[Rfam]
RNA sequence: UCAUGUAAAUAGCAAACCAUCUGAAAGGGUGGGACGCAAAGCCUGGAGUCUAAAGUAUCGUGUUUAGCGAUACCAUGAUCGUCCGACUGCCAUG
Numbered sequence: 001u002c003a004u005g006u007a008a009a010u011a012g013c014a015a016a017c018c019a020u021c022u023g024a025a026a027g028g029g030u031g032g033g034a035c036g037c038a039a040a041g042c043c044u045g046g047a048g049u050c051u052a053a054a055g056u057a058u059c060g061u062g063u064u065u066a067g068c069g070a071u072a073c074c075a076u077g078a079u080c081g082u083c084c085g086a087c088u089g090c091c092a093u094g
Stems, first nucleotide, its partner, number of pairs: 012037002017032006040088002043085001045084003048079003055073007
Dot-bracket structure: ...........((...((((((....))))))...))..((.(.((((((....(((((((.....)))))))...)))..)))).))......